RNA sequence: CGGCAUGCCGCCUGCCGGUAAAGGCGGCGGCCGCGGACCAGACCGCCCUUGACAGG
Numbered sequence: 001c002g003g004c005a006u007g008c009c010g011c012c013u014g015c016c017g018g019u020a021a022a023g024g025c026g027g028c029g030g031c032c033g034c035g036g037a038c039c040a041g042a043c044c045g046c047c048c049u050u051g052a053c054a055g056g
Base pairs, nucleotide, nucleotide: 007031008030009029010028011027012026033046034045035044036043

A member of the RNA family "M23 RNA" from Papillibacter cinnamivorans, 56 nucleotides long. By type it is a small RNA.